[Rfam]
RNA sequence: CGUCGACGUCGCGUGGCAGGAGCGGGGGACCCAGGUUCCACGGGCGCUCAGGCGCCCUCGGGGUGAAGCCGAUCCACGAGACCGGCCGGACGGCUCCGUCCGAACCCGACAGCUCACCUCGCAGGCGACCAGGAG
Dot-bracket structure: ((((....((........)).((((((....(...........................)(((.....(((...........)))..((((......))))...))).........)))))).))))........
The family of this 135-nucleotide RNA sequence from Cellulomonas hominis is "c-di-AMP riboswitch aptamer (ydaO/yuaA leader)". This family represents a conserved RNA structure found upstream of the ydaO and yuaA genes in Bacillus subtilis and related genes in other bacteria. Lineage of the source: Bacteria > Bacillati > Micrococcales > Cellulomonadaceae > Cellulomonas. It scores 42 bits against the family's covariance model.